[Rfam]
RNA sequence: AGCUUAUUUCGUUCAGGCGGAGGUCUUCUACCGCCCCUUCAACAAAUGGCGGCAUUCGUUGACGCGCAUCGCGCGGCUUACGGGGGCGAGCCGAUUGCCAAGUCCUGCAGAUCGCUCGG
Numbered sequence: 001a002g003c004u005u006a007u008u009u010c011g012u013u014c015a016g017g018c019g020g021a022g023g024u025c026u027u028c029u030a031c032c033g034c035c036c037c038u039u040c041a042a043c044a045a046a047u048g049g050c051g052g053c054a055u056u057c058g059u060u061g062a063c064g065c066g067c068a069u070c071g072c073g074c075g076g077c078u079u080a081c082g083g084g085g086g087c088g089a090g091c092c093g094a095u096u097g098c099c100a101a102g103u104c105c106u107g108c109a110g111a112u113c114g115c116u117c118g119g
Stems, first nucleotide, its partner, number of pairs: 016035005081119001083117003092114002095111001096109003
RNA: ALIL pseudoknot